[Rfam]
RNA sequence: UUGCAGGUGGUGUAAUGGGCAACAUGCCUGCCUUUGAAGCAGGAGAUUUCCCGGUUCGAGGCCGGGCCUGCAAG
Numbered sequence: 001u002u003g004c005a006g007g008u009g010g011u012g013u014a015a016u017g018g019g020c021a022a023c024a025u026g027c028c029u030g031c032c033u034u035u036g037a038a039g040c041a042g043g044a045g046a047u048u049u050c051c052c053g054g055u056u057c058g059a060g061g062c063c064g065g066g067c068c069u070g071c072a073a074g
Base pairs, nucleotide, nucleotide: 001073002072003071004070005069006068007067010025011024012023013022027043028042029041030040031039050066051065052064053063054062

Rfam assigns this 74-nucleotide sequence from Armatimonas rosea to the family "tRNA". It is annotated as a transfer RNA. NCBI's taxonomy places the organism under Bacteria, Armatimonadota, Armatimonadia, Armatimonadaceae, Armatimonas. The base pairs follow the family's consensus structure, which is taken from published work. Transfer RNA (tRNA) molecules are approximately 80 nucleotides in length. It scores 55 bits against the family's covariance model.